[Rfam]
RNA sequence: AAAUUAAAAAGCUGAAUCCUCGAAAGAGGUACGGAGGAACCAAGAUUUGGGGUUAAUCCAUUCUUUAUUCUUUUAUUGAAUGGUAGGGAGGUCCUAUUGCCCGAGCCCGUCAGCUAACUUCGGAAGCGCUACUAUAGGAGGG
Dot-bracket structure: ..........(((....((........))..(((((....((.....))(((.....((((((..............))))))..(((...........)))...))).........)))))..)))...............
RNA: c-di-AMP riboswitch aptamer (ydaO/yuaA leader)
Organism: Ruminiclostridium cellulolyticum